Iron response element I: a 35-nucleotide sequence from Catagonus wagneri. The source organism's lineage runs through Eukaryota, Craniata, Sarcopterygii, Amniota and Catagonus. The match comes from Rfam's covariance-model search (37 bits).
RNA sequence: UGGUUUCCUGUUUCAACAGUGCUUGGAGGGAACCA
Number, nucleotide and partner (000 for none) at each position: 001u035002g034003g033004u032005u031006u000007c030008c029009u000010g000011u000012u027013u026014c025015a024016a023017c021018a000019g000020u000021g017022c000023u016024u015025g014026g013027a012028g000029g008030g007031a005032a004033c003034c002035a001